[Rfam]
RNA sequence: CUAUAAGAGCUAGUCCAUGCGAUAACUUCCUUGUUGAAGAAUCGGAAUACUAGUGCCAA
Dot-bracket structure: ........((((((.....((((...(((......)))..))))....)))))).....
Numbered sequence: 001c002u003a004u005a006a007g008a009g010c011u012a013g014u015c016c017a018u019g020c021g022a023u024a025a026c027u028u029c030c031u032u033g034u035u036g037a038a039g040a041a042u043c044g045g046a047a048u049a050c051u052a053g054u055g056c057c058a059a
Stems, first nucleotide, its partner, number of pairs: 009054006020044004027038003